Rfam assigns this 243-nucleotide sequence from Coxiella burnetii to the family "Coxiella burnetii sRNA 2". Pairs were carried over by alignment from the consensus structure, which was predicted with CMfinder. In bacteria small regulatory RNAs are activated during stress and virulence conditions. Coxiella burnetii small RNAs: CbSRs 1, 11, 12, and 14 encoded within intergenic region IGR, and CbSRs 2, 3, 4 and 9 located antisense to identified ORFs, are up-regulated during intracellular growth in host cells.
[Rfam]
RNA sequence: AUGAAGAAAUCUCGGACAUCAACGGCCGAGAUUUCUUUCAUACUGAGGCGUUCAAUAGUAUUAAUACGUACUCGAAUUAUCACUGCCCGAUCGGCUAUCGCUUCUUUGCAUAUUAUCUUUUUGUUGAUCAUCGGGGUGGGGCGUUGUAACAGCGCCAUUUUGUCUAUCCUGAUGGGUGCGAUCCUGUUGUUGGCAAGCGGCCAAGCCGCCUACGAAGAACAGCAUCGUUACGAUUGUAAAUAA
Numbered sequence: 001a002u003g004a005a006g007a008a009a010u011c012u013c014g015g016a017c018a019u020c021a022a023c024g025g026c027c028g029a030g031a032u033u034u035c036u037u038u039c040a041u042a043c044u045g046a047g048g049c050g051u052u053c054a055a056u057a058g059u060a061u062u063a064a065u066a067c068g069u070a071c072u073c074g075a076a077u078u079a080u081c082a083c084u085g086c087c088c089g090a091u092c093g094g095c096u097a098u099c100g101c102u103u104c105u106u107u108g109c110a111u112a113u114u115a116u117c118u119u120u121u122u123g124u125u126g127a128u129c130a131u132c133g134g135g136g137u138g139g140g141g142c143g144u145u146g147u148a149a150c151a152g153c154g155c156c157a158u159u160u161u162g163u164c165u166a167u168c169c170u171g172a173u174g175g176g177u178g179c180g181a182u183c184c185u186g187u188u189g190u191u192g193g194c195a196a197g198c199g200g201c202c203a204a205g206c207c208g209c210c211u212a213c214g215a216a217g218a219a220c221a222g223c224a225u226c227g228u229u230a231c232g233a234u235u236g237u238a239a240a241u242a243a
Stems, first nucleotide, its partner, number of pairs: 001041004005036011045104006057084003062079004067074002085095003105240006115234003128175012140156007176231002178228005184222005190216002197209005